[Rfam]
RNA sequence: AAAAAGGGCAUCUGUUGUGACUAACACAGUAGGGAAAGGGACUCUCUAACUCUACUGCGGAAUCGCUAUCAAGAGAUUUCGGAUGCACAAUUUUUAAAACUAGGGGCUGCUAAUGAUCGUCUGUCUUGGCGCCCCA
Numbered sequence: 001a002a003a004a005a006g007g008g009c010a011u012c013u014g015u016u017g018u019g020a021c022u023a024a025c026a027c028a029g030u031a032g033g034g035a036a037a038g039g040g041a042c043u044c045u046c047u048a049a050c051u052c053u054a055c056u057g058c059g060g061a062a063u064c065g066c067u068a069u070c071a072a073g074a075g076a077u078u079u080c081g082g083a084u085g086c087a088c089a090a091u092u093u094u095u096a097a098a099a100c101u102a103g104g105g106g107c108u109g110c111u112a113a114u115g116a117u118c119g120u121c122u123g124u125c126u127u128g129g130c131g132c133c134c135c136a
Base pairs, nucleotide, nucleotide: 008086009085010084011083012082013026014025015024016023017022027057028056029055030054031053032052033051034050035047037045038044058081059080060079061078062077063076064075104134105133106132107131109130110129111128112127113126115125116124117123

The family of this 136-nucleotide sequence from Electrophorus electricus is "U11 spliceosomal RNA".
Rfam classes the family as a spliceosomal small nuclear RNA.
Rfam links the family to the GO terms pre-mRNA 5'-splice site binding, U11 snRNP and mRNA 5'-splice site recognition.